[Rfam]
RNA sequence: AUCGAAAGAAGAGGUUGCCAAACUCAUGAGUCAUGACUGGGAGAUCAAAAAGGAUCGCUAAUCAGUCAUAAAAGGGUGUUUGGCCGAAAUUCAAAGUUGCUUUUUCAACUGCGAGUUGGGUCCUGGCUCAAUAAGUCAGGGACUGUCGUGAUAUUUUCAAAGGUAUCACGGGGCGCUAUCUACGAU
Numbered sequence: 001a002u003c004g005a006a007a008g009a010a011g012a013g014g015u016u017g018c019c020a021a022a023c024u025c026a027u028g029a030g031u032c033a034u035g036a037c038u039g040g041g042a043g044a045u046c047a048a049a050a051a052g053g054a055u056c057g058c059u060a061a062u063c064a065g066u067c068a069u070a071a072a073a074g075g076g077u078g079u080u081u082g083g084c085c086g087a088a089a090u091u092c093a094a095a096g097u098u099g100c101u102u103u104u105u106c107a108a109c110u111g112c113g114a115g116u117u118g119g120g121u122c123c124u125g126g127c128u129c130a131a132u133a134a135g136u137c138a139g140g141g142a143c144u145g146u147c148g149u150g151a152u153a154u155u156u157u158c159a160a161a162g163g164u165a166u167c168a169c170g171g172g173g174c175g176c177u178a179u180c181u182a183c184g185a186u
Stems, first nucleotide, its partner, number of pairs: 006181001008179001010177002017084007025076001033069008088117005095110005118144002121141008146171009
The family of this 186-nucleotide RNA sequence from Pediococcus cellicola is "Lysine riboswitch aptamer".
The match comes from Rfam's covariance-model search (109 bits).